[Rfam]
RNA sequence: AAUUUCCUUCGGGGCGGGGUGCAAUUCCCCACCGGCGGUGAUGUAUUGCAGCUGACUGCAAUACUUAGUCCGUGACCCGCGCAGUGGCUUCAUGCCGCCGCUCGGCUGACUCGGUGCAACUCCGAGACCGACAGUAUAGUCUGGAUGGGAGAAGGAAAAA
Numbered sequence: 001a002a003u004u005u006c007c008u009u010c011g012g013g014g015c016g017g018g019g020u021g022c023a024a025u026u027c028c029c030c031a032c033c034g035g036c037g038g039u040g041a042u043g044u045a046u047u048g049c050a051g052c053u054g055a056c057u058g059c060a061a062u063a064c065u066u067a068g069u070c071c072g073u074g075a076c077c078c079g080c081g082c083a084g085u086g087g088c089u090u091c092a093u094g095c096c097g098c099c100g101c102u103c104g105g106c107u108g109a110c111u112c113g114g115u116g117c118a119a120c121u122c123c124g125a126g127a128c129c130g131a132c133a134g135u136a137u138a139g140u141c142u143g144g145a146u147g148g149g150a151g152a153a154g155g156a157a158a159a160a
Base pairs, nucleotide, nucleotide: 003158004157005156006155007154008153009152010151017029018028019027031140032139033130034129035073036072037071038070068128069127077105078104110126111125112124113123114122132143133142134141
Description
This 160-nucleotide RNA sequence from Paenibacillus sp. OAS669 belongs to the Rfam family "FMN riboswitch aptamer (RFN element)". The source organism's lineage runs through Bacteria, Bacillati, Bacilli, Paenibacillaceae and Paenibacillus. Gene Ontology term of the family: FMN binding. Rfam's curators write: The RFN element is a highly conserved domain that is found frequently in the 5'-untranslated regions of prokaryotic mRNAs that encode for flavin mononucleotide (FMN) biosynthesis and transport proteins. This element is a metabolite-dependent riboswitch that directly binds FMN in the absence of proteins. In Bacillus subtilis, the riboswitch most likely controls gene expression by causing premature transcription termination within the 5' untranslated region of the ribDEAHT operon and precluding access to the ribosome-binding site of ypaA mRNA.The FMN riboswitch structure, reported in present an FMN-bound six-stem junction, adopts a butterfly-like scaffold, stapled together by opposingly directed but nearly identically folded peripheral domains. The match comes from Rfam's covariance-model search (110 bits).